Annotation
Rfam assigns this 278-nucleotide RNA sequence to the family "raiA RNA".
RNA sequence: CCCGUCCGGGUCCGUGGUUGCUCCAGGAUCUCUCCCGUCGCGGUGACGCGGCUGGGCCGAUCCUGGCUAGCCGAUGCCAGCCGCAGGCGAAGCGGUCCACGUAAGGCGACUUCUCGUCGCUCGAUCACGGUGCGGUUUAGGAGUAAGUCCUGCCCCGUCACGACAUCAGAUGUGUCGUGUGCCGGGAGAAGGCCAGUAGUGGGCCAACACGCUCAUCGCAGCGCCGCGAACGUCUCAGCAGGCGAAUGUGGGGUCGAAGACCAGGUCGGCCGGUCGGG
Number, nucleotide and partner (000 for none) at each position: 001c278002c277003c276004g275005u000006c273007c272008g271009g270010g000011u000012c269013c268014g267015u263016g262017g261018u260019u259020g000021c000022u000023c000024c000025a000026g000027g000028a000029u000030c000031u000032c000033u000034c000035c000036c000037g000038u000039c000040g000041c000042g000043g000044u000045g000046a000047c000048g000049c000050g000051g000052c000053u000054g000055g000056g000057c000058c000059g000060a000061u000062c000063c000064u000065g000066g000067c000068u000069a000070g000071c000072c000073g000074a249075u248076g247077c087078c000079a137080g136081c135082c134083g133084c132085a131086g000087g077088c000089g000090a000091a000092g000093c000094g000095g000096u130097c129098c000099a000100c000101g125102u000103a000104a000105g120106g000107c000108g117109a000110c000111u000112u000113c000114u000115c000116g000117u108118c000119g000120c105121u000122c000123g000124a000125u101126c000127a000128c256129g097130g096131u085132g084133c083134g082135g081136u080137u079138u000139a000140g000141g000142a000143g000144u000145a000146a000147g000148u000149c242150c241151u240152g239153c238154c186155c185156c184157g183158u000159c000160a000161c000162g000163a000164c000165a000166u000167c000168a000169g000170a000171u000172g000173u000174g000175u000176c000177g000178u000179g000180u000181g000182c000183c157184g156185g155186g154187a000188g000189a000190a235191g234192g233193c232194c000195a000196g000197u000198a000199g227200u226201g000202g000203g000204c000205c000206a000207a216208c000209a000210c000211g000212c000213u000214c000215a000216u207217c000218g000219c000220a000221g000222c000223g000224c000225c000226g200227c199228g000229a000230a000231c000232g193233u192234c191235u190236c000237a000238g153239c152240a151241g150242g149243c000244g000245a000246a000247u076248g075249u074250g000251g000252g000253g000254u000255c000256g128257a000258a000259g019260a018261c017262c016263a015264g000265g000266u000267c014268g013269g012270c009271c008272g007273g006274u000275c004276g003277g002278g001

The family's RNA type in Rfam is riboswitch.